[Rfam]
RNA sequence: ACAUGGGAAAGGAGGUGGUCCACGAAGUGAAGAAUCUUCGGACACAUGAGGUGGUUGCACGCUAGUCGUGCCAUCGAACGACGGACCUUGCGAGGAACCCGCGGCCGACCGGUGACCGUCAGGUCACCCACGACCAGCGAGAACCGAGCAACCACCGGAGCCCGCGGGUGUCGCGCCCUUGUCCAGCGCGACGGGUGGAGAGAUCCAUCAGCCCGCGGGCCUCUUCAU
Numbered sequence: 001a002c003a004u005g006g007g008a009a010a011g012g013a014g015g016u017g018g019u020c021c022a023c024g025a026a027g028u029g030a031a032g033a034a035u036c037u038u039c040g041g042a043c044a045c046a047u048g049a050g051g052u053g054g055u056u057g058c059a060c061g062c063u064a065g066u067c068g069u070g071c072c073a074u075c076g077a078a079c080g081a082c083g084g085a086c087c088u089u090g091c092g093a094g095g096a097a098c099c100c101g102c103g104g105c106c107g108a109c110c111g112g113u114g115a116c117c118g119u120c121a122g123g124u125c126a127c128c129c130a131c132g133a134c135c136a137g138c139g140a141g142a143a144c145c146g147a148g149c150a151a152c153c154a155c156c157g158g159a160g161c162c163c164g165c166g167g168g169u170g171u172c173g174c175g176c177c178c179u180u181g182u183c184c185a186g187c188g189c190g191a192c193g194g195g196u197g198g199a200g201a202g203a204u205c206c207a208u209c210a211g212c213c214c215g216c217g218g219g220c221c222u223c224u225u226c227a228u
Base pairs, nucleotide, nucleotide: 015058016057017056018055019054060139061138062137063136065134066133068131069130070129157222158221160220161219162218163217164216165215166214167213168212169211172190173189174188175187176186
RNA: Actinobacteria sRNA Ms_IGR-5
Organism: Oerskovia sp. Root918